Rfam assigns this 90-nucleotide RNA sequence from Chitinivorax tropicus to the family "Glycine riboswitch aptamer".
Pairs were carried over by alignment from the consensus structure.

[Rfam]
RNA sequence: CCCGUUCAUGCAGGAGAGUGUGACCAACCGUCACCGCCGAAGGCGCAAAUUCACCCGGAAUCGCUCAGGCAAAAGGACUGCACGAUGCAG
Numbered sequence: 001c002c003c004g005u006u007c008a009u010g011c012a013g014g015a016g017a018g019u020g021u022g023a024c025c026a027a028c029c030g031u032c033a034c035c036g037c038c039g040a041a042g043g044c045g046c047a048a049a050u051u052c053a054c055c056c057g058g059a060a061u062c063g064c065u066c067a068g069g070c071a072a073a074a075g076g077a078c079u080g081c082a083c084g085a086u087g088c089a090g
Stems, first nucleotide, its partner, number of pairs: 006085002009082005020034004036070003039066002043064003